[Rfam]
RNA sequence: CCGGGAUUAUAAUCGGGUUAGCCCGGCGCGUCCAUUGGCGGACGUCCGAUGCGCUGCUCGUACCCAUGUUGCUCAAUGGAGGAUGUGGCUAUGAGGA
Numbered sequence: 001c002c003g004g005g006a007u008u009a010u011a012a013u014c015g016g017g018u019u020a021g022c023c024c025g026g027c028g029c030g031u032c033c034a035u036u037g038g039c040g041g042a043c044g045u046c047c048g049a050u051g052c053g054c055u056g057c058u059c060g061u062a063c064c065c066a067u068g069u070u071g072c073u074c075a076a077u078g079g080a081g082g083a084u085g086u087g088g089c090u091a092u093g094a095g096g097a
Stems, first nucleotide, its partner, number of pairs: 001016003006013002024056009057095006064088007072081003
Shown here is a 97-nucleotide RNA from Nordella sp. HKS 07, a member of the family "Repression of heat shock gene expression (ROSE) element".